[Rfam]
RNA sequence: CGGGAGGCAGAUACCUGGGUAGUGCCAACUGGUGCUCUGUCUAACACUAGUCCUCCCUACAGCAGCCAUGCUCUCCGAUGACCGUGGCGAGUUGAGAGAAAUCGCCACGGACAGAUACGGAGCAAACACUC
Dot-bracket structure: .((((((........(((...(.((........)).)...)))........))))))...........((((((.......(((..((((...........))))..)))........)))))).......
Numbered sequence: 001c002g003g004g005a006g007g008c009a010g011a012u013a014c015c016u017g018g019g020u021a022g023u024g025c026c027a028a029c030u031g032g033u034g035c036u037c038u039g040u041c042u043a044a045c046a047c048u049a050g051u052c053c054u055c056c057c058u059a060c061a062g063c064a065g066c067c068a069u070g071c072u073c074u075c076c077g078a079u080g081a082c083c084g085u086g087g088c089g090a091g092u093u094g095a096g097a098g099a100a101a102u103c104g105c106c107a108c109g110g111a112c113a114g115a116u117a118c119g120g121a122g123c124a125a126a127c128a129c130u131c
Stems, first nucleotide, its partner, number of pairs: 002057006016043003022037001024035002069124006082110003087105004
Background:
Shown here is a 131-nucleotide sequence from Parambassis ranga, a member of the family "Small Cajal body specific RNA 8". It is annotated as a small Cajal body RNA. Rfam links the family to the GO terms Cajal body, RNA processing and nucleolus. The base pairs follow the family's consensus structure, which is taken from published work. Rfam's curators write: scaRNAs are a specific class of small nuclear RNAs which localise to the Cajal bodies and guide the modification of RNA polymerase II transcribed spliceosomal RNAs U1, U2, U4, U5 and U12. U92 belong to the H/ACA box class of guide RNAs as it has the predicted hairpin-hinge-hairpin-tail structure, conserved H/ACA-box motifs and is found associated with GAR1. Lineage of the source: Eukaryota > Chordata > Craniata > Neopterygii > Parambassis.